Source information
The family of this 104-nucleotide RNA from Jeotgalibaca dankookensis is "NiCo (Nickel/Cobalt) riboswitch aptamer". Its Rfam clan is "NiCo_riboswitches". Pairs were carried over by alignment from the consensus structure, which is taken from published work. It scores 50 bits against the family's covariance model. Rfam links the family to the GO terms metal ion homeostasis and cobalt ion binding. For this family Rfam cites "Bacterial riboswitches cooperatively bind Ni(2+) or Co(2+) ions and control expression of heavy metal transporters" (Furukawa et al., Mol Cell, 2015).

RNA sequence: CCCAUUAAAUCUGAACAGGCGGUAAACCACACAAAGGUUUAUGCAGCCGGUCCACCUUUGUGUGGUAGCAGCGUUGUGCAAAAAGGCACACCUGUGGGACAGUA
Numbered sequence: 001c002c003c004a005u006u007a008a009a010u011c012u013g014a015a016c017a018g019g020c021g022g023u024a025a026a027c028c029a030c031a032c033a034a035a036g037g038u039u040u041a042u043g044c045a046g047c048c049g050g051u052c053c054a055c056c057u058u059u060g061u062g063u064g065g066u067a068g069c070a071g072c073g074u075u076g077u078g079c080a081a082a083a084a085g086g087c088a089c090a091c092c093u094g095u096g097g098g099a100c101a102g103u104a
Stems, first nucleotide, its partner, number of pairs: 011102003016098001018048003022042006052065004068095004